A member of the RNA family "Tobamovirus internal ribosome entry site (IRES)" from Crucifer tobamovirus, 151 nucleotides long. A reference for the family is Ivanov et al. (1997), "A tobamovirus genome that contains an internal ribosome entry site functional in vitro", Virology. The family's consensus secondary structure is taken from published work. Lineage of the source: Viruses > Riboviria > Alsuviricetes > Virgaviridae > Tobamovirus.
RNA sequence: GAAUUCAUCGAUUCGGUUGCAGCAUUUAAAGCGGUUGACAAUUUCAGGAAAAAGAAAAGGAAGAUUGGAGGAAGGGAUGUGAUUAGUAAGUAUAAGUAUAGACCAGAGAAGUACGCCGGUCCUGAUUCGUUACUUAAUAAAGAAGAAAAUG
Numbered sequence: 001g002a003a004u005u006c007a008u009c010g011a012u013u014c015g016g017u018u019g020c021a022g023c024a025u026u027u028a029a030a031g032c033g034g035u036u037g038a039c040a041a042u043u044u045c046a047g048g049a050a051a052a053a054g055a056a057a058a059g060g061a062a063g064a065u066u067g068g069a070g071g072a073a074g075g076g077a078u079g080u081g082a083u084u085a086g087u088a089a090g091u092a093u094a095a096g097u098a099u100a101g102a103c104c105a106g107a108g109a110a111g112u113a114c115g116c117c118g119g120u121c122c123u124g125a126u127u128c129g130u131u132a133c134u135u136a137a138u139a140a141a142g143a144a145g146a147a148a149a150u151g
Stems, first nucleotide, its partner, number of pairs: 025049003030044002034042003084132004089127002091098002099124002101121004106116001
Rfam's curators write: This family represents the Tobamovirus internal ribosome entry site (IRES). IRES elements allow cap and end-independent translation of mRNA in the host cell. The IRES achieves this by mediating the internal initiation of translation by recruiting a ribosomal 43S pre-initiation complex directly to the initiation codon and eliminates the requirement for eIF4F. The sequence is in the family's curated seed alignment.